[Rfam]
RNA: Bacterial RNase P class A
RNA sequence: ACUACAAACUAGGCUAUCACCUUGCCCUUAGGGGUGGGGAGGAAAGUCCGGGCAGCAUAGAGCAACGCAGCAGCUAACGGCUGCGCAAUCCUGUAAAAAGGAAAGACAGACAGUGCCACAGAAAAUAACCGCCAUGCCUCGGUAUGGUAAGGGUGAAAAUGUAGGGUAAGAGCCUACGGGGUUUGUUGGUAACAACAAAUUGGGGUAAACCUUGCGUGCUGAAAUGCCCAAUAGGCGUACGAUUGAGGGCUGCUCGCCCAAUGUACGCGGGUAGGCAGAUACAGGUGUUGGCGCAAGCUGCAUCGCAGAUAAAUGAUAGCUAAAGAAUAGCAAUAUUCUUACAGAACCCGGCUUAUCGGUUUGUAGUUUUU
Numbered sequence: 001a002c003u004a005c006a007a008a009c010u011a012g013g014c015u016a017u018c019a020c021c022u023u024g025c026c027c028u029u030a031g032g033g034g035u036g037g038g039g040a041g042g043a044a045a046g047u048c049c050g051g052g053c054a055g056c057a058u059a060g061a062g063c064a065a066c067g068c069a070g071c072a073g074c075u076a077a078c079g080g081c082u083g084c085g086c087a088a089u090c091c092u093g094u095a096a097a098a099a100g101g102a103a104a105g106a107c108a109g110a111c112a113g114u115g116c117c118a119c120a121g122a123a124a125a126u127a128a129c130c131g132c133c134a135u136g137c138c139u140c141g142g143u144a145u146g147g148u149a150a151g152g153g154u155g156a157a158a159a160u161g162u163a164g165g166g167u168a169a170g171a172g173c174c175u176a177c178g179g180g181g182u183u184u185g186u187u188g189g190u191a192a193c194a195a196c197a198a199a200u201u202g203g204g205g206u207a208a209a210c211c212u213u214g215c216g217u218g219c220u221g222a223a224a225u226g227c228c229c230a231a232u233a234g235g236c237g238u239a240c241g242a243u244u245g246a247g248g249g250c251u252g253c254u255c256g257c258c259c260a261a262u263g264u265a266c267g268c269g270g271g272u273a274g275g276c277a278g279a280u281a282c283a284g285g286u287g288u289u290g291g292c293g294c295a296a297g298c299u300g301c302a303u304c305g306c307a308g309a310u311a312a313a314u315g316a317u318a319g320c321u322a323a324a325g326a327a328u329a330g331c332a333a334u335a336u337u338c339u340u341a342c343a344g345a346a347c348c349c350g351g352c353u354u355a356u357c358g359g360u361u362u363g364u365a366g367u368u369u370u371u
Stems, first nucleotide, its partner, number of pairs: 001367010011356001012321007020039008044354003048351005053221004060255004065217005070084005085107001086105001089102004108212002113210002115206003129152002131148007160178006180201009225277004235268006247259004284304004289300004